[Rfam]
RNA sequence: GAGGGAUGUUGGCCCCUCGGAGCCGCCCGUUCGGGGGGAGGCUUCAAACCACCACAUGCUGCGUUGGCUGAAGACCGUCGUGGUGAGCGAUGUGGAAAAGGCACACGUGAUGUGUCAGGU
Numbered sequence: 001g002a003g004g005g006a007u008g009u010u011g012g013c014c015c016c017u018c019g020g021a022g023c024c025g026c027c028c029g030u031u032c033g034g035g036g037g038g039a040g041g042c043u044u045c046a047a048a049c050c051a052c053c054a055c056a057u058g059c060u061g062c063g064u065u066g067g068c069u070g071a072a073g074a075c076c077g078u079c080g081u082g083g084u085g086a087g088c089g090a091u092g093u094g095g096a097a098a099a100g101g102c103a104c105a106c107g108u109g110a111u112g113u114g115u116c117a118g119g120u
Base pairs, nucleotide, nucleotide: 001018002017003016004015005014019045020044021043022042023041024040026038027037028036030035050119052095053094054093055092056091057090058084059083061081062080063079065077066076067075100116101115102114103113104112105111